The family of this 89-nucleotide RNA from Myotis lucifugus is "mir-9195 microRNA precursor family".
[Rfam]
RNA sequence: AGAGGCCCAUCUGUGGCCAGGUGCGGAAUGCUUGCCUCGUUGCCACGGUGACGAAGCAAGCAUUCCGCCAGGCCGCUCAUGCUGCCCGC
Numbered sequence: 001a002g003a004g005g006c007c008c009a010u011c012u013g014u015g016g017c018c019a020g021g022u023g024c025g026g027a028a029u030g031c032u033u034g035c036c037u038c039g040u041u042g043c044c045a046c047g048g049u050g051a052c053g054a055a056g057c058a059a060g061c062a063u064u065c066c067g068c069c070a071g072g073c074c075g076c077u078c079a080u081g082c083u084g085c086c087c088g089c
Stems, first nucleotide, its partner, number of pairs: 004086003013076006021069001023068013039052005

NCBI's taxonomy places the organism under Eukaryota, Eumetazoa, Craniata, Vertebrata, Myotis.